[Rfam]
RNA sequence: CGAACACUCUGGAGAGUGAUGCCAAGUGCAUCCGCCGAAGGGAUAACGAUCUCAGGCGACAGGACAGAGGGGGCACG
Numbered sequence: 001c002g003a004a005c006a007c008u009c010u011g012g013a014g015a016g017u018g019a020u021g022c023c024a025a026g027u028g029c030a031u032c033c034g035c036c037g038a039a040g041g042g043a044u045a046a047c048g049a050u051c052u053c054a055g056g057c058g059a060c061a062g063g064a065c066a067g068a069g070g071g072g073g074c075a076c077g
Stems, first nucleotide, its partner, number of pairs: 005071001007069005018032004034057003037053002041051002
Shown here is a 77-nucleotide RNA sequence from Sulfitobacter brevis, a member of the family "Glycine riboswitch aptamer". About the family: This family represents the bacterial glycine riboswitch. On this family, see Mandal et al., Science 2004: "A glycine-dependent riboswitch that uses cooperative binding to control gene expression".